[Rfam]
A member of the RNA family "Guanidine-II riboswitch aptamer (mini-ykkC)" from Oceanidesulfovibrio indonesiensis, 49 nucleotides long. It scores 33 bits against the family's covariance model.
RNA sequence: UGCUCAGGACGACCUGGGCAACAUUCAUCCACGCGCAGGGACGACCCUC
Numbered sequence: 001u002g003c004u005c006a007g008g009a010c011g012a013c014c015u016g017g018g019c020a021a022c023a024u025u026c027a028u029c030c031a032c033g034c035g036c037a038g039g040g041a042c043g044a045c046c047c048u049c
Stems, first nucleotide, its partner, number of pairs: 001020008037048004